[Rfam]
RNA: Bacillus-plasmid RNA
RNA sequence: GUUGUCAAUGGUAAGCGGACCGUAGGGAGCAUUAAGGAAUUGACAAUGUCACUACA
Numbered sequence: 001g002u003u004g005u006c007a008a009u010g011g012u013a014a015g016c017g018g019a020c021c022g023u024a025g026g027g028a029g030c031a032u033u034a035a036g037g038a039a040u041u042g043a044c045a046a047u048g049u050c051a052c053u054a055c056a
Base pairs, nucleotide, nucleotide: 001047002046003045004044005043006042007041008040009039
Dot-bracket structure: (((((((((.............................))))))))).........